Background: Rfam assigns this 179-nucleotide sequence from Cytobacillus dafuensis to the family "FMN riboswitch aptamer (RFN element)". NCBI's taxonomy places the organism under Bacteria, Bacillati, Bacilli, Bacillaceae, Cytobacillus.
[Rfam]
RNA sequence: GUCUAUCUUCGGGGCAGGGUGAAAUUCCCGACCGGCGGUGAUGAGAGGUUUCUCUAAGCCCGCGAGCCUUUUUAAGAGGAGACAUUUAUCCGAUAUCAAUUUUGGAUAAUAUCUUUGCUUGGGCAGGAUUUGGUGUGAUUCCAAAGCCGACAGUAUAGUCUGGAUGGGAGAAGAUGGAG
Numbered sequence: 001g002u003c004u005a006u007c008u009u010c011g012g013g014g015c016a017g018g019g020u021g022a023a024a025u026u027c028c029c030g031a032c033c034g035g036c037g038g039u040g041a042u043g044a045g046a047g048g049u050u051u052c053u054c055u056a057a058g059c060c061c062g063c064g065a066g067c068c069u070u071u072u073u074a075a076g077a078g079g080a081g082a083c084a085u086u087u088a089u090c091c092g093a094u095a096u097c098a099a100u101u102u103u104g105g106a107u108a109a110u111a112u113c114u115u116u117g118c119u120u121g122g123g124c125a126g127g128a129u130u131u132g133g134u135g136u137g138a139u140u141c142c143a144a145a146g147c148c149g150a151c152a153g154u155a156u157a158g159u160c161u162g163g164a165u166g167g168g169a170g171a172a173g174a175u176g177g178a179g
Base pairs, nucleotide, nucleotide: 003177004176005175006174007173008172009171010170017029018028019027031159032158033149034148035063036062037061038060058147059146068123069122070121129145130144131143132142133141151162152161153160
It scores 119 bits against the family's covariance model. Rfam describes the family as follows. The RFN element is a highly conserved domain that is found frequently in the 5'-untranslated regions of prokaryotic mRNAs that encode for flavin mononucleotide (FMN) biosynthesis and transport proteins.